The family of this 70-nucleotide RNA from Paraburkholderia sp. DHOC27 is "Fluoride riboswitch aptamer (crcB RNA motif)". On this family, see Baker et al., Science 2012: "Widespread genetic switches and toxicity resistance proteins for fluoride".

Nucleotides: 070
Base pairs, nucleotide, nucleotide: 010026011025012024013023016061017060018059019058020057021056036051037050038049039048040047041046
Number, partner (000 for none) and nucleotide at each position: 001000u002000a003000u004000u005000g006000a007000u008000g009000c010026g011025g012024a013023g014000a015000u016061g017060g018059c019058a020057u021056u022000c023013c024012u025011c026010c027000g028000a029000g030000c031000c032000a033000a034000c035000c036051g037050u038049c039048g040047c041046a042000c043000c044000c045000c046041u047040g048039c049038g050037a051036c052000u053000g054000a055000u056021g057020a058019u059018g060017c061016c062000u063000a064000c065000g066000g067000u068000c069000c070000c